[Rfam]
RNA sequence: UUAAAAACGCGUUAAGGAUAGUAGCGGCAUCCUUUUUUACGUCAGAUUGAGUGCCUUGAGGUAACGAAAGGUAUCGAGAACAAGUAAAAAAGAUACAGCGGAUAGCCUGUUAAAAC
Numbered sequence: 001u002u003a004a005a006a007a008c009g010c011g012u013u014a015a016g017g018a019u020a021g022u023a024g025c026g027g028c029a030u031c032c033u034u035u036u037u038u039a040c041g042u043c044a045g046a047u048u049g050a051g052u053g054c055c056u057u058g059a060g061g062u063a064a065c066g067a068a069a070g071g072u073a074u075c076g077a078g079a080a081c082a083a084g085u086a087a088a089a090a091a092g093a094u095a096c097a098g099c100g101g102a103u104a105g106c107c108u109g110u111u112a113a114a115a116c
Stems, first nucleotide, its partner, number of pairs: 015108003019104002024099002029094003035089006042082001
RNA: Flavo-1 RNA